The family of this 93-nucleotide RNA from Muraenolepis orangiensis is "mir-217 microRNA precursor family". Pairs were carried over by alignment from the consensus structure, which was predicted with RNAalifold. A reference for the family is Lim et al. (2003), "Vertebrate microRNA genes", Science.
[Rfam]
RNA sequence: AGCUCUUUGGUGUGGACGGUACUGCAUCAGGAACUGAUUGGCUGAUGCUCAGGAGCCACCAGUACCCGAUGCACUGCCUUCAGCACUGAGAAA
Numbered sequence: 001a002g003c004u005c006u007u008u009g010g011u012g013u014g015g016a017c018g019g020u021a022c023u024g025c026a027u028c029a030g031g032a033a034c035u036g037a038u039u040g041g042c043u044g045a046u047g048c049u050c051a052g053g054a055g056c057c058a059c060c061a062g063u064a065c066c067c068g069a070u071g072c073a074c075u076g077c078c079u080u081c082a083g084c085a086c087u088g089a090g091a092a093a
Stems, first nucleotide, its partner, number of pairs: 023073005030066002033063004039058003